[Rfam]
RNA sequence: CACAUAUUCCCCCGGGGAAGGUCGAGAACCUUCGAUUAAGGUUCGAGUUGAGCGUAGCGAAACAACGUCGCUUGCGACGGCCCGCAGGGCGAAGAGCGCAGCGAUGAGUCAUCCUUCCCCCACCACCA
Number, nucleotide and partner (000 for none) at each position: 001c000002a000003c000004a000005u000006a000007u000008u000009c000010c000011c000012c000013c000014g000015g119016g118017g117018a116019a115020g114021g113022u000023c000024g000025a000026g000027a000028a000029c000030c000031u000032u000033c091034g090035a000036u089037u088038a000039a000040g000041g000042u086043u000044c084045g083046a000047g000048u000049u059050g058051a000052g000053c000054g000055u000056a000057g000058c050059g049060a000061a000062a000063c000064a000065a000066c079067g078068u077069c076070g075071c000072u000073u000074g000075c070076g069077a068078c067079g066080g000081c000082c000083c045084g044085c000086a042087g000088g037089g036090c034091g033092a000093a000094g000095a000096g000097c000098g000099c000100a000101g000102c000103g000104a000105u000106g000107a000108g000109u000110c000111a000112u000113c021114c020115u019116u018117c017118c016119c015120c000121c000122a000123c000124c000125a000126c000127c000128a000